RNA: mir-998 microRNA precursor family
RNA sequence: AUCAUCGAUACCGGGGCUGAACUCUCGUGGGUCUGCAGUAUUUACAAGCGGCCACAUCGUUCAUGUAGCACCAUGAGAUUCAGCUCCGGUGUUUGGAUGAA
Numbered sequence: 001a002u003c004a005u006c007g008a009u010a011c012c013g014g015g016g017c018u019g020a021a022c023u024c025u026c027g028u029g030g031g032u033c034u035g036c037a038g039u040a041u042u043u044a045c046a047a048g049c050g051g052c053c054a055c056a057u058c059g060u061u062c063a064u065g066u067a068g069c070a071c072c073a074u075g076a077g078a079u080u081c082a083g084c085u086c087c088g089g090u091g092u093u094u095g096g097a098u099g100a101a
Stems, first nucleotide, its partner, number of pairs: 003099004009091001011089005017083003023078008033068005